This 173-nucleotide RNA from Paenibacillus wynnii belongs to the Rfam family "Group II catalytic intron D1-D4-3". The pairing is the family consensus, mapped onto this sequence.
RNA sequence: UCCACUGUGAGGUGGAAUCUGAAGGAAGUCGGCGGCAAACCUCUGGUUCGAGGAACACGAACCUCAUAUAAGGCUAACGUUCGUUGGAUAAGGCUGCAACACAAGUCAAAAUCCGUACUGCCGAAGGCGAGCGAGAGUAAAUGAGGCGGAUAGAUGGAGGGAAAGAUAGCGUU
Number, nucleotide and partner (000 for none) at each position: 001u016002c015003c014004a013005c012006u011007g000008u000009g000010a000011g006012g005013u004014g003015g002016a001017a000018u000019c000020u000021g000022a000023a000024g000025g000026a000027a000028g173029u000030c171031g170032g000033c000034g000035g000036c165037a000038a000039a000040c160041c159042u158043c157044u156045g155046g151047u150048u149049c148050g147051a000052g000053g000054a000055a000056c000057a000058c000059g000060a000061a000062c146063c145064u144065c143066a142067u141068a000069u000070a000071a000072g000073g138074c137075u136076a000077a000078c133079g132080u131081u130082c129083g128084u000085u000086g114087g113088a112089u111090a000091a000092g107093g106094c105095u104096g000097c000098a000099a000100c000101a000102c000103a000104a095105g094106u093107c092108a000109a000110a000111a089112u088113c087114c086115g000116u000117a000118c000119u000120g000121c000122c000123g000124a000125a000126g000127g000128c083129g082130a081131g080132c079133g078134a000135g000136a075137g074138u073139a000140a000141a067142u066143g065144a064145g063146g062147c050148g049149g048150a047151u046152a000153g000154a000155u045156g044157g043158a042159g041160g040161g000162a000163a000164a000165g036166a000167u000168a000169g000170c031171g030172u000173u028